Notes:
The record is a 223-nucleotide RNA sequence from Magnetospira sp. QH-2, which matches "permuted transfer-messenger RNA" in Rfam. Lineage of the source: Bacteria > Pseudomonadati > Rhodospirillales > Thalassospiraceae > Magnetospira. On this family, see Mao et al., RNA Biol 2010: "Variations on the tmRNA gene". The family's RNA type in Rfam is non-coding RNA gene.
RNA sequence: GACGAUAAACGCUUAGUGGAAUAAGCGUUGCGGACCCGGGGGCGGUACCCGGCGCCUCCACCAUAAGCCCAUCUGGCGGUGAAUUGGGUGGGCUUGUGAUGGGGGCGAAAUAGGAUCGACGCGCGUAGUAAAGACUUUUGCUUUCGUCCGGCAUGGUACCCACCGUUAUCGGGCCACUUUGAGAAAUGCCAACGAUAAUGAGGCAUUUGCUGUUGCCGCUUAA
Numbered sequence: 001g002a003c004g005a006u007a008a009a010c011g012c013u014u015a016g017u018g019g020a021a022u023a024a025g026c027g028u029u030g031c032g033g034a035c036c037c038g039g040g041g042g043c044g045g046u047a048c049c050c051g052g053c054g055c056c057u058c059c060a061c062c063a064u065a066a067g068c069c070c071a072u073c074u075g076g077c078g079g080u081g082a083a084u085u086g087g088g089u090g091g092g093c094u095u096g097u098g099a100u101g102g103g104g105g106c107g108a109a110a111u112a113g114g115a116u117c118g119a120c121g122c123g124c125g126u127a128g129u130a131a132a133g134a135c136u137u138u139u140g141c142u143u144u145c146g147u148c149c150g151g152c153a154u155g156g157u158a159c160c161c162a163c164c165g166u167u168a169u170c171g172g173g174c175c176a177c178u179u180u181g182a183g184a185a186a187u188g189c190c191a192a193c194g195a196u197a198a199u200g201a202g203g204c205a206u207u208u209g210c211u212g213u214u215g216c217c218g219c220u221u222a223a
Base pairs, nucleotide, nucleotide: 001148002147003146004145005144015136016135017134026125027124028123030122031121032120036052037051038050039049040048053107054106055105056104057103058102059101149165150164151163
Rfam describes the family as follows. Bacterial tmRNA, also known as 10Sa RNA or SsrA, is named for its dual tRNA and mRNA-like properties. Its role is to liberate the mRNA from a stalled ribosome. To accomplish this part of the tmRNA is used as a reading frame that ends in a translation stop signal. The broken mRNA is replaced in the ribosome by the tmRNA and translation of the tmRNA leads to addition of a proteolysis tag to the incomplete protein enabling recognition by a protease. Recently a number of permuted tmRNA genes have been found encoded in two parts. tmRNAs have been identified in eubacteria and some chloroplasts but are absent from archaeal and eukaryote nuclear genomes.